[Rfam]
RNA sequence: UUGCACGAAAACAACGAAUGCCCUACCUCUCAAUCGUCUCCUGCGGCUCCGAUGGCCGCGCCUGUCAUGAAUCCGUGAUCCUUCUUGCAG
Numbered sequence: 001u002u003g004c005a006c007g008a009a010a011a012c013a014a015c016g017a018a019u020g021c022c023c024u025a026c027c028u029c030u031c032a033a034u035c036g037u038c039u040c041c042u043g044c045g046g047c048u049c050c051g052a053u054g055g056c057c058g059c060g061c062c063u064g065u066c067a068u069g070a071a072u073c074c075g076u077g078a079u080c081c082u083u084c085u086u087g088c089a090g
Stems, first nucleotide, its partner, number of pairs: 034070003040064001042060007
Dot-bracket structure: .................................(((...(.(((((((.....)))))))...)...)))....................
RNA: BsrC
Organism: Xylanibacillus composti